Shown here is a 169-nucleotide RNA sequence from Granulicatella adiacens, a member of the family "Enterococcus sRNA B11". The family's RNA type in Rfam is small RNA. The family's consensus secondary structure was predicted with RNAfold. Lineage of the source: Bacteria > Bacilli > Lactobacillales > Carnobacteriaceae > Granulicatella adiacens.
RNA sequence: GGCAACUGGCCUCGUUAGGAGGUGAGGUUUUAGUGGAAAUAUUCACUUUAUAUUUCCUUGCCCCAUUACAUGUGGGACUAAUUUUAAUAUUAGUGGAGUAUUUGCUGAACUCUAGCAAGAAAAAAUAGUUGCCUUAGCACCAGAACGUUAGAUACUAUUUAACGAAAAA
Numbered sequence: 001g002g003c004a005a006c007u008g009g010c011c012u013c014g015u016u017a018g019g020a021g022g023u024g025a026g027g028u029u030u031u032a033g034u035g036g037a038a039a040u041a042u043u044c045a046c047u048u049u050a051u052a053u054u055u056c057c058u059u060g061c062c063c064c065a066u067u068a069c070a071u072g073u074g075g076g077a078c079u080a081a082u083u084u085u086a087a088u089a090u091u092a093g094u095g096g097a098g099u100a101u102u103u104g105c106u107g108a109a110c111u112c113u114a115g116c117a118a119g120a121a122a123a124a125a126u127a128g129u130u131g132c133c134u135u136a137g138c139a140c141c142a143g144a145a146c147g148u149u150a151g152a153u154a155c156u157a158u159u160u161a162a163c164g165a166a167a168a169a
Stems, first nucleotide, its partner, number of pairs: 001133008010022004023037001026034001051124001053122003057119005062076005078093005094107001096106001146164005